Rfam assigns this 109-nucleotide RNA to the family "IMPDH RNA". The match comes from Rfam's covariance-model search (103 bits).

RNA sequence: CUUCUGAGGUAUCGGGCGCCUGCCUGCCCCUCCUCCGGCUGUUCUCCUUCUCAGCUGUUGGCAGACGCCACACAGGCGAUACCUCACUUCGUGUACAAAAAAGCUCGUC
Numbered sequence: 001c002u003u004c005u006g007a008g009g010u011a012u013c014g015g016g017c018g019c020c021u022g023c024c025u026g027c028c029c030c031u032c033c034u035c036c037g038g039c040u041g042u043u044c045u046c047c048u049u050c051u052c053a054g055c056u057g058u059u060g061g062c063a064g065a066c067g068c069c070a071c072a073c074a075g076g077c078g079a080u081a082c083c084u085c086a087c088u089u090c091g092u093g094u095a096c097a098a099a100a101a102a103g104c105u106c107g108u109c
Stems, first nucleotide, its partner, number of pairs: 007084007015069004020064001022062003036057006070094004074089003